[Rfam]
RNA sequence: GGAUAUAAGGGUAAUCUGGCUGUGAGGUCUGAUAUGCCAUUGGUUGUAUGGGUUGAUUUGACUGACCUGGCUAGCUUAGGCAGGGGUUCUCUUUGUCCCUUGACAUCUCAUGUGUGUUCCUCCUGAUGCUGUGUGCUUAGUUAAUGAGCACAUCCCUAAUAGACAUGGUGCUGGUCAUUGGUCAAGGGUGUGUGGUAGCUGUGCUCACCUGCUGGGAUCUCUAAGUAAGCUCAGGGCCCACUUGUAGAUCAAUGUAGGGUAGAAAAGUCACAUCCAGAUGAGAUUGCAUGCUGCAAUCUAGCAGUUUUU
Numbered sequence: 001g002g003a004u005a006u007a008a009g010g011g012u013a014a015u016c017u018g019g020c021u022g023u024g025a026g027g028u029c030u031g032a033u034a035u036g037c038c039a040u041u042g043g044u045u046g047u048a049u050g051g052g053u054u055g056a057u058u059u060g061a062c063u064g065a066c067c068u069g070g071c072u073a074g075c076u077u078a079g080g081c082a083g084g085g086g087u088u089c090u091c092u093u094u095g096u097c098c099c100u101u102g103a104c105a106u107c108u109c110a111u112g113u114g115u116g117u118u119c120c121u122c123c124u125g126a127u128g129c130u131g132u133g134u135g136c137u138u139a140g141u142u143a144a145u146g147a148g149c150a151c152a153u154c155c156c157u158a159a160u161a162g163a164c165a166u167g168g169u170g171c172u173g174g175u176c177a178u179u180g181g182u183c184a185a186g187g188g189u190g191u192g193u194g195g196u197a198g199c200u201g202u203g204c205u206c207a208c209c210u211g212c213u214g215g216g217a218u219c220u221c222u223a224a225g226u227a228a229g230c231u232c233a234g235g236g237c238c239c240a241c242u243u244g245u246a247g248a249u250c251a252a253u254g255u256a257g258g259g260u261a262g263a264a265a266a267g268u269c270a271c272a273u274c275c276a277g278a279u280g281a282g283a284u285u286g287c288a289u290g291c292u293g294c295a296a297u298c299u300a301g302c303a304g305u306u307u308u309u
Stems, first nucleotide, its partner, number of pairs: 001109002006102006013094002018091002024088002028084004033079001035074001037070003042067004046062002117168002121163002123140004128136002141159003148155001198268003204262002208258005220248003225245005276309003282302001283297005
Dot-bracket structure: ((...((((((.((...((....((..((((.(.(.(((..((((((.............)).)))))))...)....).))))..)).)).))..)))))).....)).......((..((((((.((.....))))))(((....(......).)))..))...)).............................(((...((..(((((.......(((..(((((...........)))))))).....)))))..))...))).......(((...((((((.....)))))....)....)))
Notes: The record is a 309-nucleotide RNA from Erithacus rubecula, which matches "7SK RNA" in Rfam. The literature on the family includes a 2002 paper in Curr Biol by Blencowe, "Transcription: surprising role for an elusive small nuclear RNA".